[Rfam]
RNA sequence: GUAAAGUAUAACCCCAGUAUCAUUGACUGCCCGCGCAACAAUCACUCGCGGAUGGUCACUCUAAGCUGGCAGAUAGACGUCUCGAUGAACCACUUAAGUUCCGUUGUGAAGUUUUUGCCCUUCAGGCUGUAUUUCAUGACACUACUGUAGUUCACACACCC
Numbered sequence: 001g002u003a004a005a006g007u008a009u010a011a012c013c014c015c016a017g018u019a020u021c022a023u024u025g026a027c028u029g030c031c032c033g034c035g036c037a038a039c040a041a042u043c044a045c046u047c048g049c050g051g052a053u054g055g056u057c058a059c060u061c062u063a064a065g066c067u068g069g070c071a072g073a074u075a076g077a078c079g080u081c082u083c084g085a086u087g088a089a090c091c092a093c094u095u096a097a098g099u100u101c102c103g104u105u106g107u108g109a110a111g112u113u114u115u116u117g118c119c120c121u122u123c124a125g126g127c128u129g130u131a132u133u134u135c136a137u138g139a140c141a142c143u144a145c146u147g148u149a150g151u152u153c154a155c156a157c158a159c160c161c
Stems, first nucleotide, its partner, number of pairs: 014069005026056004031051005086154005092148002103140010116129002119126002